RNA sequence: UGAGCGGGGGACAACUGGCGCUGAUCGUGGGGCAACCACGGGGGAGUCACCCGAACUUCAAAUUGGAUCGCGCGCCUGGGUCGGAGGG
Number, nucleotide and partner (000 for none) at each position: 001u000002g000003a000004g000005c053006g052007g051008g050009g000010g048011a047012c046013a000014a000015c043016u042017g076018g075019c074020g073021c072022u000023g000024a000025u000026c000027g039028u038029g037030g036031g000032g000033c000034a000035a000036c030037c029038a028039c027040g000041g000042g016043g015044g000045a000046g012047u011048c010049a000050c008051c007052c006053g005054a000055a000056c000057u000058u000059c000060a000061a000062a000063u000064u000065g000066g082067a081068u080069c079070g000071c000072g021073c020074g019075c018076c017077u000078g000079g069080g068081u067082c066083g000084g000085a000086g000087g000088g000